Source information
Glycine riboswitch aptamer: a 98-nucleotide RNA sequence from Mycobacterium helveticum.
RNA sequence: CGCACUCGGGCGGGAGAGUUCCGUGGCUGCCAGUCACGGGCGCCGAAGGAGCAAGACCUCUCCACCAACCUCUCAGGCACCCGGACCGCGCGAGUUUA
Numbered sequence: 001c002g003c004a005c006u007c008g009g010g011c012g013g014g015a016g017a018g019u020u021c022c023g024u025g026g027c028u029g030c031c032a033g034u035c036a037c038g039g040g041c042g043c044c045g046a047a048g049g050a051g052c053a054a055g056a057c058c059u060c061u062c063c064a065c066c067a068a069c070c071u072c073u074c075a076g077g078c079a080c081c082c083g084g085a086c087c088g089c090g091c092g093a094g095u096u097u098a
Stems, first nucleotide, its partner, number of pairs: 006093003010089004020040006042078003045074002049072003055065001
It scores 64 bits against the family's covariance model. The source organism's lineage runs through Bacteria, Actinomycetota, Actinomycetes, Mycobacteriales and Mycobacterium.